[Rfam]
RNA sequence: CGUCUCCGAGGAGCGUUGCGACAGGCCAUCAGCGCCUGCCAGGCUCGGGACGAUCAAUCCGGUACUCGCGCGUCACGGGAAGCAACCGCGCCGCGAGCCACCGCAUCGAAACGGCGCUCACGUCUA
Number, nucleotide and partner (000 for none) at each position: 001c000002g051003u050004c049005u000006c048007c047008g046009a045010g000011g000012a000013g000014c000015g000016u000017u000018g000019c000020g000021a000022c038023a037024g036025g035026c034027c000028a000029u000030c000031a000032g000033c000034g026035c025036c024037u023038g022039c000040c000041a000042g000043g000044c000045u009046c008047g007048g006049g004050a003051c002052g000053a000054u000055c000056a000057a000058u000059c000060c000061g000062g000063u000064a000065c000066u000067c000068g000069c000070g000071c000072g000073u000074c000075a000076c000077g000078g000079g000080a000081a000082g000083c000084a000085a000086c000087c000088g000089c000090g000091c000092c000093g000094c000095g000096a000097g000098c000099c000100a000101c000102c000103g000104c000105a000106u000107c000108g000109a000110a000111a000112c000113g000114g000115c000116g000117c000118u000119c000120a000121c000122g000123u000124c000125u000126a000
The record is a 126-nucleotide RNA from Paraburkholderia caballeronis, which matches "SAH (S-adenosyl-L-homocysteine) riboswitch aptamer" in Rfam. The family has 52 seed sequences and 1,354 matches in Rfam 15.1. The source organism's lineage runs through Bacteria, Pseudomonadota, Betaproteobacteria, Burkholderiales and Paraburkholderia. A reference for the family is Wang et al. (2008), "Riboswitches that sense S-adenosylhomocysteine and activate genes involved in coenzyme recycling", Mol Cell.